Small nucleolar RNA SNORA68: a 132-nucleotide RNA from Echinops telfairi. Rfam's curators put it in the seed alignment.
[Rfam]
RNA sequence: CUUGCACCCAAACCCAAGGACUGUGGCUUCUCGUAGCAGCAGUUUAAAGAGUGGUGCGCACAGAAAGUGGGCCUUGUCGCCUUUGAGGGGCUGUGCAGUGCCCCUCAGAGUGAAUGUGAAGGUUCGACAAGC
Numbered sequence: 001c002u003u004g005c006a007c008c009c010a011a012a013c014c015c016a017a018g019g020a021c022u023g024u025g026g027c028u029u030c031u032c033g034u035a036g037c038a039g040c041a042g043u044u045u046a047a048a049g050a051g052u053g054g055u056g057c058g059c060a061c062a063g064a065a066a067g068u069g070g071g072c073c074u075u076g077u078c079g080c081c082u083u084u085g086a087g088g089g090g091c092u093g094u095g096c097a098g099u100g101c102c103c104c105u106c107a108g109a110g111u112g113a114a115u116g117u118g119a120a121g122g123u124u125c126g127a128c129a130a131g132c
Stems, first nucleotide, its partner, number of pairs: 003058006019044006026037003069125007081110011
Dot-bracket structure: ..((((((..........((((((.(((......))).))))))........))))))..........(((((((.....(((((((((((........)))))))))))........))))))).......
Taxonomically the source falls in Echinops (Eukaryota, Eumetazoa, Afrosoricida, Tenrecinae). Its family is annotated with RNA processing and nucleolus in the Gene Ontology.